[Rfam]
This 135-nucleotide RNA sequence from Nannospalax galili belongs to the Rfam family "Small nucleolar RNA SNORA46".
RNA sequence: GGCACUAUUUUUAACACUGUGGAUGAGAACUUUCUCCACCCUUGGCUACGCUGUAGUGCAGAAGAAUUCCUGGUUCUUUGUUGCACAGCGGACCUCUGCCGUUUUGCUAUUGCUUUAUGGAUUUAAGAAGAAAAA
Numbered sequence: 001g002g003c004a005c006u007a008u009u010u011u012u013a014a015c016a017c018u019g020u021g022g023a024u025g026a027g028a029a030c031u032u033u034c035u036c037c038a039c040c041c042u043u044g045g046c047u048a049c050g051c052u053g054u055a056g057u058g059c060a061g062a063a064g065a066a067u068u069c070c071u072g073g074u075u076c077u078u079u080g081u082u083g084c085a086c087a088g089c090g091g092a093c094c095u096c097u098g099c100c101g102u103u104u105u106g107c108u109a110u111u112g113c114u115u116u117a118u119g120g121a122u123u124u125a126a127g128a129a130g131a132a133a134a135a
Stems, first nucleotide, its partner, number of pairs: 002059007014047001017044001021041002024038002027035001067130002070127002072124002075121003079117002083113003087108003091104002
Its family is annotated with RNA processing and nucleolus in the Gene Ontology. About the family: ACA46 is a member of the H/ACA class of snoRNA that guide the sites of modification of uridines to pseudouridines. The family's RNA type in Rfam is H/ACA-box small nucleolar RNA.